[Rfam]
RNA sequence: GCUGUCCAGUGGUGAGGCUCUGGAAUGAGCACUGGGCACAGCGCCCAAGUCAGACUGGAAAUAUUCUUUGCUGCCUGCCUUCUAAGAACAGC
Numbered sequence: 001g002c003u004g005u006c007c008a009g010u011g012g013u014g015a016g017g018c019u020c021u022g023g024a025a026u027g028a029g030c031a032c033u034g035g036g037c038a039c040a041g042c043g044c045c046c047a048a049g050u051c052a053g054a055c056u057g058g059a060a061a062u063a064u065u066c067u068u069u070g071c072u073g074c075c076u077g078c079c080u081u082c083u084a085a086g087a088a089c090a091g092c
Stems, first nucleotide, its partner, number of pairs: 001092005
Rfam assigns this 92-nucleotide sequence from Erinaceus europaeus to the family "Small nucleolar RNA U83B".
U83B belongs to the C/D family of snoRNAs.
Pairs were carried over by alignment from the consensus structure.